[Rfam]
Description:
Rfam assigns this 57-nucleotide RNA from Myotis brandtii to the family "Antizyme RNA frameshifting stimulation element". Pairs were carried over by alignment from the consensus structure, which is taken from published work. Taxonomically the source falls in Myotis (Eukaryota, Opisthokonta, Eutheria, Boreoeutheria). About the family: This family represents a structural element which is found in antizyme mRNA and is known to promote frameshifting. Antizyme genes have have two partially overlapping open reading frames, the second, which encodes the functional protein requires +1 translational frameshifting. This frameshift is stimulated by a pseudoknot present 3' of the frameshift site in the antizyme mRNA. The frameshifting efficiency is dependent on the level of polyamines in the cell, when the polyamine concentration is high frameshifting is more likely to occur which leads to an increase in the quantity of functional antizyme produced. The functional antizyme acts to reduce ornithine decarboxylase (ODC) activity which leads to a drop in polyamines present in the cell. Therefore, this family can be thought of as a biosensor for intracellular free polyamines. It is annotated as a frameshift element. A search with the family's covariance model found it, with a score of 64 bits.
Nucleotides: 057
Stems, first nucleotide, its partner, number of pairs: 006044006013037002016034003025057006
Number, partner (000 for none) and nucleotide at each position: 001000u002000g003000a004000u005000g006044u007043u008042c009041c010040u011039c012000a013037c014036c015000c016034a017033c018032c019000c020000c021000u022000a023000a024000a025057g026056a027055u028054c029053c030052c031000a032018g033017g034016u035000a036014g037013g038000u039011g040010a041009g042008g043007a044006a045000a046000u047000a048000g049000a050000g051000a052030g053029g054028g055027a056026u057025c